c-di-GMP-I riboswitch aptamer: a 103-nucleotide RNA sequence from bacterium 1xD42-67.
RNA sequence: AGGCGACUCGGGCAAACCAUGGGAAACUGUGGGACUGCAAAGCUAUGGGAACUAAGGUAUCGAGAUGACAGAUCGACGAUGCUAUGUUAGCCCGGCUGCUGGA
Numbered sequence: 001a002g003g004c005g006a007c008u009c010g011g012g013c014a015a016a017c018c019a020u021g022g023g024a025a026a027c028u029g030u031g032g033g034a035c036u037g038c039a040a041a042g043c044u045a046u047g048g049g050a051a052c053u054a055a056g057g058u059a060u061c062g063a064g065a066u067g068a069c070a071g072a073u074c075g076a077c078g079a080u081g082c083u084a085u086g087u088u089a090g091c092c093c094g095g096c097u098g099c100u101g102g103a
Base pairs, nucleotide, nucleotide: 012038013037017032018031019030020029021028022027041097042096043095044094047093048092049091050088051087052086057082058081059080060079061078062077
Dot-bracket structure: ...........((...((((((....))))))....))..((((..((((((....((((((..............))))))...)))..)))))))......
GEMM was predicted in a large-scale screen for bacterial structured RNA regulatory elements. Genes associated with GEMM are involved in a diverse array of functions, including chemotaxis regulation, signal transduction, secretion and chitin.